RNA sequence: GCGGGUGUGGCGAAACUGGCAGACGCACCAGAUUUAGGUUCUGGCGCCGCAAGGCGUGGGGGUUCAAGUCCCUUCACCCGCA
Numbered sequence: 001g002c003g004g005g006u007g008u009g010g011c012g013a014a015a016c017u018g019g020c021a022g023a024c025g026c027a028c029c030a031g032a033u034u035u036a037g038g039u040u041c042u043g044g045c046g047c048c049g050c051a052a053g054g055c056g057u058g059g060g061g062g063u064u065c066a067a068g069u070c071c072c073u074u075c076a077c078c079c080g081c082a
Base pairs, nucleotide, nucleotide: 001081002080003079004078005077006076007075010026011025012024028044029043030042031041032040058074059073060072061071062070